[Rfam]
RNA sequence: UGUAGCUGUGGAGUGUGACAAUGGUGUUUGUGUUGUCUAAAAUCAAACGCCAUUAUCACACUAAAUAACUAUGG
Numbered sequence: 001u002g003u004a005g006c007u008g009u010g011g012a013g014u015g016u017g018a019c020a021a022u023g024g025u026g027u028u029u030g031u032g033u034u035g036u037c038u039a040a041a042a043u044c045a046a047a048c049g050c051c052a053u054u055a056u057c058a059c060a061c062u063a064a065a066u067a068a069c070u071a072u073g074g
Stems, first nucleotide, its partner, number of pairs: 012062007020054011
The record is a 74-nucleotide RNA from Astyanax mexicanus, which matches "mir-122 microRNA precursor family" in Rfam. A reference for the family is Lagos-Quintana et al. (2002), "Identification of tissue-specific microRNAs from mouse", Curr Biol.